Shown here is a 146-nucleotide RNA from Actinidia chinensis, a member of the family "small nucleolar RNA snoR135". The organism belongs to Actinidia chinensis, within Eukaryota. It scores 129 bits against the family's covariance model.
RNA sequence: GAAGCGGGGAUUGUGUGUAUCGACGUUGUGCUGUAUCAAUGCACAUUGAUCGAAAGAGUUCCCUGCAAAAUUGAAUGUACAGGGGAUGGUGGGCAGUUGUAUUUCCUUCUCACUAGAAAUCUUCAACAAUCAUCUUCCCCAAAUUU
Numbered sequence: 001g002a003a004g005c006g007g008g009g010a011u012u013g014u015g016u017g018u019a020u021c022g023a024c025g026u027u028g029u030g031c032u033g034u035a036u037c038a039a040u041g042c043a044c045a046u047u048g049a050u051c052g053a054a055a056g057a058g059u060u061c062c063c064u065g066c067a068a069a070a071u072u073g074a075a076u077g078u079a080c081a082g083g084g085g086a087u088g089g090u091g092g093g094c095a096g097u098u099g100u101a102u103u104u105c106c107u108u109c110u111c112a113c114u115a116g117a118a119a120u121c122u123u124c125a126a127c128a129a130u131c132a133u134c135u136u137c138c139c140c141a142a143a144u145u146u
Stems, first nucleotide, its partner, number of pairs: 004066007015044006082140005088134005096127004